[Rfam]
RNA sequence: ACGCCAUGCGCGGGAGAGCGCGGACCCGUCCGCCGCCGAAGGAGCAACCGCCCCGGAAUCUCUCAGGCAACAGGGACCGCGCAAGGGCU
Numbered sequence: 001a002c003g004c005c006a007u008g009c010g011c012g013g014g015a016g017a018g019c020g021c022g023g024a025c026c027c028g029u030c031c032g033c034c035g036c037c038g039a040a041g042g043a044g045c046a047a048c049c050g051c052c053c054c055g056g057a058a059u060c061u062c063u064c065a066g067g068c069a070a071c072a073g074g075g076a077c078c079g080c081g082c083a084a085g086g087g088c089u
Base pairs, nucleotide, nucleotide: 007083008082009081010080011079012078013077020033021032022031023030035068036067037066038064039063042062043061044060048056049055
Dot-bracket structure: ......(((((((......((((......)))).(((((..(((...((.....))...))))).)))........)))))))......

This 89-nucleotide RNA from Sphingomonas sp. CFBP 13720 belongs to the Rfam family "Glycine riboswitch aptamer". The base pairs follow the family's consensus structure.